Shown here is a 99-nucleotide sequence from Herbiconiux flava, a member of the family "Glycine riboswitch aptamer".

[Rfam]
RNA sequence: CCACUCUGGAAAGCAGUCCGCGGCAUCGACGGCGGCUCGCCCAUGGUGAAAGCACCCGUUCACGGGUGUGAAACUCUCAGGCACGAUGACAGAGGGGGA
Numbered sequence: 001c002c003a004c005u006c007u008g009g010a011a012a013g014c015a016g017u018c019c020g021c022g023g024c025a026u027c028g029a030c031g032g033c034g035g036c037u038c039g040c041c042c043a044u045g046g047u048g049a050a051a052g053c054a055c056c057c058g059u060u061c062a063c064g065g066g067u068g069u070g071a072a073a074c075u076c077u078c079a080g081g082c083a084c085g086a087u088g089a090c091a092g093a094g095g096g097g098g099a
Base pairs, nucleotide, nucleotide: 001097002096004094005093006092007091008090015037016036017035018034039082040081041080043077046076048074052069053068054067055066056065057064058063
Its family is annotated with glycine biosynthetic process in the Gene Ontology. The organism belongs to Herbiconiux, within Bacteria.